The record is a 132-nucleotide sequence from Cryptosporangium aurantiacum, which matches "FMN riboswitch aptamer (RFN element)" in Rfam.
The organism belongs to Cryptosporangium, within Bacteria.

[Rfam]
RNA sequence: ACGCGCGCUCCGGGGUCGGUGAAAUUCCGAGCCGGCGGUGACAGUCCGCGACCCGUGCGCCCUUCGGGGCAAGCGGUUGACCCGGUGGAACUCCGGGACCGACGGUGAAAGUCCGGAUGGGAGGAAGCGCGC
Numbered sequence: 001a002c003g004c005g006c007g008c009u010c011c012g013g014g015g016u017c018g019g020u021g022a023a024a025u026u027c028c029g030a031g032c033c034g035g036c037g038g039u040g041a042c043a044g045u046c047c048g049c050g051a052c053c054c055g056u057g058c059g060c061c062c063u064u065c066g067g068g069g070c071a072a073g074c075g076g077u078u079g080a081c082c083c084g085g086u087g088g089a090a091c092u093c094c095g096g097g098a099c100c101g102a103c104g105g106u107g108a109a110a111g112u113c114c115g116g117a118u119g120g121g122a123g124g125a126a127g128c129g130c131g132c
Base pairs, nucleotide, nucleotide: 003130004129005128006127009124010123017029018028019027031112032111033101034100035049036048037047038046044099045098053076054075055074056073081097082096083095084094085093103115104114105113